[Rfam]
RNA sequence: AGCCGUCCCAACGGCUCAAAAAAGUCAAUUAGGCUGUGUGCGUCCGGCGGAAAUGCCGGGGUUUCA
Dot-bracket structure: ((((..[.[[..))))........(.((....(.]].]..).(((((((....)))))))..)).)
A member of the RNA family "Pistol ribozyme" from Roseburia sp. 1XD42-69, 66 nucleotides long. Pairs were carried over by alignment from the consensus structure, which is taken from published work. Lineage of the source: Bacteria > Bacillati > Bacillota > Clostridia > Roseburia. For this family Rfam cites "Crucial Roles of Two Hydrated Mg(2+) Ions in Reaction Catalysis of the Pistol Ribozyme" (Teplova et al., Angew Chem Int Ed Engl, 2020). Rfam links the family to the GO term catalytic activity.